[Rfam]
RNA sequence: AGGAUGGUAUCCAUGCGGAACCAUACCUUGGAAAAUCUUUUUUUGCCAGUAAAAUAUUUUCUAUACCGCUUGGAGCCGGACGGACCGAGACGGGGGU
Numbered sequence: 001a002g003g004a005u006g007g008u009a010u011c012c013a014u015g016c017g018g019a020a021c022c023a024u025a026c027c028u029u030g031g032a033a034a035a036u037c038u039u040u041u042u043u044u045g046c047c048a049g050u051a052a053a054a055u056a057u058u059u060u061c062u063a064u065a066c067c068g069c070u071u072g073g074a075g076c077c078g079g080a081c082g083g084a085c086c087g088a089g090a091c092g093g094g095g096g097u
Base pairs, nucleotide, nucleotide: 001028002027003026004024005023006022007021008020010019011018066093067092068091069089070088071087072086073085076083077082
RNA: pan motif